The family of this 101-nucleotide RNA sequence from Domibacillus mangrovi is "Purine riboswitch aptamer". The family's consensus secondary structure is taken from published work. Rfam's curators write: Riboswitches are metabolite binding domains within certain messenger RNAs that serve as precision sensors for their corresponding targets. Allosteric rearrangement of mRNA structure is mediated by ligand binding, and this results in modulation of gene expression. A class of riboswitches that selectively recognises guanine and becomes saturated at concentrations as low as 5 nM. In Bacillus subtilis, this mRNA motif is located on at least five separate transcriptional units that together encode 17 genes that are mostly involved in purine transport and purine nucleotide biosynthesis. It has also been shown that some members of this family are specific for adenine instead.
RNA sequence: CAUAAAUCAAUGAUAUUCCUAUAUAUAAUCGUGGGAAUGGGCCUGCAAGUAUUUACCGGACUGCUUUAAAUAGGCUGGCUAUGAGUGAACAGCAGCACGCU
Numbered sequence: 001c002a003u004a005a006a007u008c009a010a011u012g013a014u015a016u017u018c019c020u021a022u023a024u025a026u027a028a029u030c031g032u033g034g035g036a037a038u039g040g041g042c043c044u045g046c047a048a049g050u051a052u053u054u055a056c057c058g059g060a061c062u063g064c065u066u067u068a069a070a071u072a073g074g075c076u077g078g079c080u081a082u083g084a085g086u087g088a089a090c091a092g093c094a095g096c097a098c099g100c101u
Stems, first nucleotide, its partner, number of pairs: 018087001020085001022083004029048001031046005057077003061073003